[Rfam]
RNA: Lysine riboswitch aptamer
RNA sequence: GAGCAGAAUAGAGGUGCGCGAUUGAUGAGUAGUGCGUGAGAGGCCGCCGGGGCUUAGGACCACGUACAAAAGGCGAAAGCGCCGAAGGAUCCGGGUUCGGCAACCCUGCUCCUGGUUGCCUGGUUAAGAGCUUGGCAAUUGUCAUCAUGCUUUUGAUGGAGAGCUAUUCGACGU
Numbered sequence: 001g002a003g004c005a006g007a008a009u010a011g012a013g014g015u016g017c018g019c020g021a022u023u024g025a026u027g028a029g030u031a032g033u034g035c036g037u038g039a040g041a042g043g044c045c046g047c048c049g050g051g052g053c054u055u056a057g058g059a060c061c062a063c064g065u066a067c068a069a070a071a072g073g074c075g076a077a078a079g080c081g082c083c084g085a086a087g088g089a090u091c092c093g094g095g096u097u098c099g100g101c102a103a104c105c106c107u108g109c110u111c112c113u114g115g116u117u118g119c120c121u122g123g124u125u126a127a128g129a130g131c132u133u134g135g136c137a138a139u140u141g142u143c144a145u146c147a148u149g150c151u152u153u154u155g156a157u158g159g160a161g162a163g164c165u166a167u168u169c170g171a172c173g174u
Base pairs, nucleotide, nucleotide: 006169007168008167009166010165011164016082017081018080019079022076023075024074032067033066034065035064036063037062038061086113087112088111089110091108093106094105095104096103097102114140115139116138117137118136119135120134122132123131124130142159143158144157145156146155147154